[Rfam]
RNA sequence: CGAGUCGGCUGGGCGGCCGCGUCGGUGACCUUCGGGCCGCCGCCGAGGAACGUCCGGACUCCGCAGGGCAGGGUGGUUGUUAACGGCAACCCGGGGUGACCCGCGGGAAAGUGCCACAGAAAACAAACCGCCGGGCGUACGCGCCCGGUAAGGGUGAAACGGUGGGGUAAGAGCCCACCAGCGCGCCGGGUGACCGGAGCGGCUUGGUAAACCCCACCCGGAGCAAGGCCAAAAGGGCCGUCCCAUGGACGACCUGCGCAGGUGUUCGAGGGCUGCCCGCCCGAGCCUGCGGGUAGGCCGCUCGAGCCUGCCGGCAACGGCAGGCCUAGAUGGAUGGCCGCCACCGGCCGCCGAGAGGCGGCCGGAACAGAAUCCGGCGUACAGGCCGACUCGCCCG
Numbered sequence: 001c002g003a004g005u006c007g008g009c010u011g012g013g014c015g016g017c018c019g020c021g022u023c024g025g026u027g028a029c030c031u032u033c034g035g036g037c038c039g040c041c042g043c044c045g046a047g048g049a050a051c052g053u054c055c056g057g058a059c060u061c062c063g064c065a066g067g068g069c070a071g072g073g074u075g076g077u078u079g080u081u082a083a084c085g086g087c088a089a090c091c092c093g094g095g096g097u098g099a100c101c102c103g104c105g106g107g108a109a110a111g112u113g114c115c116a117c118a119g120a121a122a123a124c125a126a127a128c129c130g131c132c133g134g135g136c137g138u139a140c141g142c143g144c145c146c147g148g149u150a151a152g153g154g155u156g157a158a159a160c161g162g163u164g165g166g167g168u169a170a171g172a173g174c175c176c177a178c179c180a181g182c183g184c185g186c187c188g189g190g191u192g193a194c195c196g197g198a199g200c201g202g203c204u205u206g207g208u209a210a211a212c213c214c215c216a217c218c219c220g221g222a223g224c225a226a227g228g229c230c231a232a233a234a235g236g237g238c239c240g241u242c243c244c245a246u247g248g249a250c251g252a253c254c255u256g257c258g259c260a261g262g263u264g265u266u267c268g269a270g271g272g273c274u275g276c277c278c279g280c281c282c283g284a285g286c287c288u289g290c291g292g293g294u295a296g297g298c299c300g301c302u303c304g305a306g307c308c309u310g311c312c313g314g315c316a317a318c319g320g321c322a323g324g325c326c327u328a329g330a331u332g333g334a335u336g337g338c339c340g341c342c343a344c345c346g347g348c349c350g351c352c353g354a355g356a357g358g359c360g361g362c363c364g365g366a367a368c369a370g371a372a373u374c375c376g377g378c379g380u381a382c383a384g385g386c387c388g389a390c391u392c393g394c395c396c397g
Stems, first nucleotide, its partner, number of pairs: 001393010011382001012342007020045002023042005050380003054377005059223004066278004071219005076090005091105001092103004106214002111212002113208003128153002130149008161179006181203001182201003186197004227299004237290002240287001242285001270282004306325008